[Rfam]
RNA: small nucleolar RNA snoR135
Organism: Oryza sativa
RNA sequence: AGUGCAGGAUUGUGUGUAACGGCAUUACGCUGCUUAUAUGCUGUGCGUUUGUUGCCGAAAGUGUUUCCUGCUAUAGAAAUUUGAGGAGAGUGGGCAGUUGGGUUAAGCUUGAUAUCAGCUUUUUCCAACAAUCAUUUUCCUCACAUGU
Numbered sequence: 001a002g003u004g005c006a007g008g009a010u011u012g013u014g015u016g017u018a019a020c021g022g023c024a025u026u027a028c029g030c031u032g033c034u035u036a037u038a039u040g041c042u043g044u045g046c047g048u049u050u051g052u053u054g055c056c057g058a059a060a061g062u063g064u065u066u067c068c069u070g071c072u073a074u075a076g077a078a079a080u081u082u083g084a085g086g087a088g089a090g091u092g093g094g095c096a097g098u099u100g101g102g103u104u105a106a107g108c109u110u111g112a113u114a115u116c117a118g119c120u121u122u123u124u125c126c127a128a129c130a131a132u133c134a135u136u137u138u139c140c141u142c143a144c145a146u147g148u
Stems, first nucleotide, its partner, number of pairs: 004071005009065001014048005083142011097129004